[Rfam]
RNA sequence: GUCGGCUACGGCGACAUGGUGCCCACCACCAUCGGCGGGAAGAUCGUGGGCUCGCUCUGCGCCAUCGCCGGCGUGCUGACCAUCGCCCUGCCCGUCCCCGUCAUCGUGUCCAAC
Numbered sequence: 001g002u003c004g005g006c007u008a009c010g011g012c013g014a015c016a017u018g019g020u021g022c023c024c025a026c027c028a029c030c031a032u033c034g035g036c037g038g039g040a041a042g043a044u045c046g047u048g049g050g051c052u053c054g055c056u057c058u059g060c061g062c063c064a065u066c067g068c069c070g071g072c073g074u075g076c077u078g079a080c081c082a083u084c085g086c087c088c089u090g091c092c093c094g095u096c097c098c099c100g101u102c103a104u105c106g107u108g109u110c111c112a113a114c
Stems, first nucleotide, its partner, number of pairs: 001114002004111002007108005013102003018097002021095002037077002040074001049063003
This 114-nucleotide RNA sequence from Coregonus sp. 'balchen' belongs to the Rfam family "Potassium channel RNA editing signal".
Rfam's curators write: This family represents a group of sequences related to the human potassium channel Kv1.1 hairpin element which directs the efficient modification of an adenosine to inosine by an adenosine deaminase acting on RNA (ADAR). The ADAR modification causes an isoleucine/valine recoding event which lies in the ion-conducting pore of the potassium channel. It is thought that this editing event targets the process of fast inactivation and allows a more rapid recovery from inactivation at negative potentials.
NCBI's taxonomy places the organism under Eukaryota, Vertebrata, Actinopterygii, Coregoninae, Coregonus.
By type it is a cis-regulatory element.
Rfam links the family to the GO term adenosine to inosine editing.